[Rfam]
RNA sequence: UUAUUCUAAGGAAGGAAUGAUGUUUCAAUUGAGUCUCAAGAAAAGGAUCCUGAGCCUUAGAGCUUUGAAAGAGCCACUUGGUCCCUGACCUUCCUUGAGACAAA
Numbered sequence: 001u002u003a004u005u006c007u008a009a010g011g012a013a014g015g016a017a018u019g020a021u022g023u024u025u026c027a028a029u030u031g032a033g034u035c036u037c038a039a040g041a042a043a044a045g046g047a048u049c050c051u052g053a054g055c056c057u058u059a060g061a062g063c064u065u066u067g068a069a070a071g072a073g074c075c076a077c078u079u080g081g082u083c084c085c086u087g088a089c090c091u092u093c094c095u096u097g098a099g100a101c102a103a104a
Base pairs, nucleotide, nucleotide: 009095010094011093012092013091014090015089
A member of the RNA family "Small nucleolar RNA SNORD124" from Loxodonta africana, 104 nucleotides long. By type it is a C/D-box small nucleolar RNA. Pairs were carried over by alignment from the consensus structure, which was predicted with WAR. The family has 18 seed sequences and 191 matches in Rfam 15.1.